Record summary
This 107-nucleotide RNA sequence from Paenibacillus beijingensis belongs to the Rfam family "Glycine riboswitch aptamer". It scores 37 bits against the family's covariance model. The source organism's lineage runs through Bacteria, Bacillati, Bacillota, Paenibacillaceae and Paenibacillus.
RNA sequence: CUCUGGAGAGAACGUUCGGAACGCGAAAGGCGUGCCCGUCGUCACCCAAGGGGAAACCCGGGCAAUCAUUUCAAGUUCGGGGUAACUCUCAGGUACAAAGGACAGAG
Number, nucleotide and partner (000 for none) at each position: 001c107002u106003c105004u104005g103006g000007a000008g000009a000010g000011a000012a042013c041014g040015u000016u000017c000018g000019g000020a000021a000022c000023g000024c000025g000026a000027a000028a000029g000030g000031c000032g000033u000034g000035c000036c000037c000038g000039u000040c014041g013042u012043c000044a094045c093046c092047c000048a089049a000050g000051g088052g087053g086054a000055a000056a000057c081058c080059c079060g078061g077062g076063c075064a000065a000066u000067c000068a000069u000070u000071u000072c000073a000074a000075g063076u062077u061078c060079g059080g058081g057082g000083u000084a000085a000086c053087u052088c051089u048090c000091a000092g046093g045094u044095a000096c000097a000098a000099a000100g000101g000102a000103c005104a004105g003106a002107g001